Rfam assigns this 94-nucleotide RNA from Amborella trichopoda to the family "Small nucleolar RNA Z43". The family has 7 seed sequences and 859 matches in Rfam 15.1. The family's consensus secondary structure was predicted with PFOLD. Taxonomically the source falls in Amborella (Eukaryota, Streptophyta, Streptophytina, Amborellales). Rfam links the family to the GO terms RNA processing and nucleolus.
RNA sequence: GGACGAUGAUGAUCCAAAAGAAAGGUCUCGUUCGUCGUAAUGGCGAUCCGCCUUGCCGACCAAUCUGAUAUACCACUACCCAUAUUCUGAGUCC
Numbered sequence: 001g002g003a004c005g006a007u008g009a010u011g012a013u014c015c016a017a018a019a020g021a022a023a024g025g026u027c028u029c030g031u032u033c034g035u036c037g038u039a040a041u042g043g044c045g046a047u048c049c050g051c052c053u054u055g056c057c058g059a060c061c062a063a064u065c066u067g068a069u070a071u072a073c074c075a076c077u078a079c080c081c082a083u084a085u086u087c088u089g090a091g092u093c094c
Stems, first nucleotide, its partner, number of pairs: 001094004045054002